The record is a 73-nucleotide RNA from Candidula unifasciata, which matches "Small nucleolar RNA R38" in Rfam.
It is annotated as a C/D-box small nucleolar RNA.
snoR38 is a C/D box small nucleolar RNA conserved across yeast, human, Arabidopsis and rice.
The match comes from Rfam's covariance-model search (46 bits).
On this family, see Bachellerie et al., Trends Biochem Sci 1995: "Antisense snoRNAs: a family of nucleolar RNAs with long complementarities to rRNA".
[Rfam]
RNA sequence: GCUAUGCAAUGAUGAUAUAUUUAGUUAUCCCUGUCUUACAUUUGAUAUGGGGAGAAUAUACUCUGAGCAAAGU
Numbered sequence: 001g002c003u004a005u006g007c008a009a010u011g012a013u014g015a016u017a018u019a020u021u022u023a024g025u026u027a028u029c030c031c032u033g034u035c036u037u038a039c040a041u042u043u044g045a046u047a048u049g050g051g052g053a054g055a056a057u058a059u060a061c062u063c064u065g066a067g068c069a070a071a072g073u
Stems, first nucleotide, its partner, number of pairs: 001073003005069003